[Rfam]
RNA sequence: UUUCCCAUUUGACUACCACAUUUUCUCCAAUAAUAGAUUUUAGUGGCUAUGCUUGUGGGAUAGAUUAAAGUUGCCAUGAUCUGAAGAGGGAGGGUUUUUCAGUGUCCUCCUCCUAUAUGAAAUGGCU
Numbered sequence: 001u002u003u004c005c006c007a008u009u010u011g012a013c014u015a016c017c018a019c020a021u022u023u024u025c026u027c028c029a030a031u032a033a034u035a036g037a038u039u040u041u042a043g044u045g046g047c048u049a050u051g052c053u054u055g056u057g058g059g060a061u062a063g064a065u066u067a068a069a070g071u072u073g074c075c076a077u078g079a080u081c082u083g084a085a086g087a088g089g090g091a092g093g094g095u096u097u098u099u100c101a102g103u104g105u106c107c108u109c110c111u112c113c114u115a116u117a118u119g120a121a122a123u124g125g126c127u
Stems, first nucleotide, its partner, number of pairs: 004059004016046004073126004091114004
RNA: Small nucleolar RNA SNORA29
Organism: Heterocephalus glaber